[Rfam]
The record is a 246-nucleotide RNA from Streptomyces chartreusis, which matches "Streptomyces sRNA 4677" in Rfam. For this family Rfam cites "Complex intra-operonic dynamics mediated by a small RNA in Streptomyces coelicolor" (Hindra et al., PLoS One, 2014). Located in the intergenic region between anti-sigma factor SCO4677 gene and a putative regulatory protein gene SCO4676. scr4677 expression requires the SCO4677 activity and scr4677 sRNA itself seem to affect the levels of the SCO4676-associated transcripts. The pairing is the family consensus, mapped onto this sequence. It is one of the family's seed sequences. Lineage of the source: Bacteria > Actinomycetota > Actinomycetes > Kitasatosporales > Streptomyces chartreusis.
RNA sequence: CGCUCCGGUGCGAGGGGCGGUCUCUUUUCCCAAGGACCACGACGGUGAAAGAACCCGACCAAGCCCCACCCCUCCCGCCCGCUGCGCAAACUCACCCACCCGGGUGAACAUCGCCAACUCGGCUGGAUUCCCAGCCCCUUGCUGGCCCUACGCUCAGCGCAACACAACCGCAGACAUGCGACGGCCCCCGCCGGGACGGCAAUCCCAGUGCGAGGGCCUGACCACCGAGGAAGUAGGAGCUUCCCG
Numbered sequence: 001c002g003c004u005c006c007g008g009u010g011c012g013a014g015g016g017g018c019g020g021u022c023u024c025u026u027u028u029c030c031c032a033a034g035g036a037c038c039a040c041g042a043c044g045g046u047g048a049a050a051g052a053a054c055c056c057g058a059c060c061a062a063g064c065c066c067c068a069c070c071c072c073u074c075c076c077g078c079c080c081g082c083u084g085c086g087c088a089a090a091c092u093c094a095c096c097c098a099c100c101c102g103g104g105u106g107a108a109c110a111u112c113g114c115c116a117a118c119u120c121g122g123c124u125g126g127a128u129u130c131c132c133a134g135c136c137c138c139u140u141g142c143u144g145g146c147c148c149u150a151c152g153c154u155c156a157g158c159g160c161a162a163c164a165c166a167a168c169c170g171c172a173g174a175c176a177u178g179c180g181a182c183g184g185c186c187c188c189c190g191c192c193g194g195g196a197c198g199g200c201a202a203u204c205c206c207a208g209u210g211c212g213a214g215g216g217c218c219u220g221a222c223c224a225c226c227g228a229g230g231a232a233g234u235a236g237g238a239g240c241u242u243c244c245c246g
Stems, first nucleotide, its partner, number of pairs: 007226004016079004092107006122158005183218005189212003193206004229244005